Shown here is an 87-nucleotide RNA sequence from Siminovitchia fortis, a member of the family "BsrC". The source organism's lineage runs through Bacteria, Bacillota, Bacilli, Bacillaceae and Siminovitchia. The family has 29 seed sequences and 572 matches in Rfam 15.1. Rfam's curators write: The 301 nucleotide sequence from Kouji Nakamura has been trimmed to a highly conserved ~85 nucleotide long core to form this family. The literature on the family includes a 2008 paper in Gene by Saito et al., "Novel small RNA-encoding genes in the intergenic regions of Bacillus subtilis". The match comes from Rfam's covariance-model search (69 bits).
RNA sequence: UUAAACCUAAACGACGUAUGCCCUACCUCUCAUACAUCCUUACGACUCCGCAGUCGAUCCAGUGUGAUUAAGUUCUUAAUUAUUUAA
Dot-bracket structure: ..................................((..((..(((((....)))))....))..)).....................
Numbered sequence: 001u002u003a004a005a006c007c008u009a010a011a012c013g014a015c016g017u018a019u020g021c022c023c024u025a026c027c028u029c030u031c032a033u034a035c036a037u038c039c040u041u042a043c044g045a046c047u048c049c050g051c052a053g054u055c056g057a058u059c060c061a062g063u064g065u066g067a068u069u070a071a072g073u074u075c076u077u078a079a080u081u082a083u084u085u086a087a
Stems, first nucleotide, its partner, number of pairs: 035066002039062002043056005